[Rfam]
RNA sequence: CUAUUGACGGUUCUCCGAGCUUUUUGUCCUACGUCACUACAGAUACGGACUGAUUGCCGUGGUAAUUUUGCCACCGGGGUGAGUAAAGAAAUGCACUCACCUCCCACACUUGGAAAGGUUAACAUGUCCCAGCUUC
Numbered sequence: 001c002u003a004u005u006g007a008c009g010g011u012u013c014u015c016c017g018a019g020c021u022u023u024u025u026g027u028c029c030u031a032c033g034u035c036a037c038u039a040c041a042g043a044u045a046c047g048g049a050c051u052g053a054u055u056g057c058c059g060u061g062g063u064a065a066u067u068u069u070g071c072c073a074c075c076g077g078g079g080u081g082a083g084u085a086a087a088g089a090a091a092u093g094c095a096c097u098c099a100c101c102u103c104c105c106a107c108a109c110u111u112g113g114a115a116a117g118g119u120u121a122a123c124a125u126g127u128c129c130c131a132g133c134u135u136c
Base pairs, nucleotide, nucleotide: 006127011122012121015118016117019057020056023053024052026050027049028048029047033044034043035042059074060073061072062071063070077102078101079100080099081098082097083096084095087092103113104112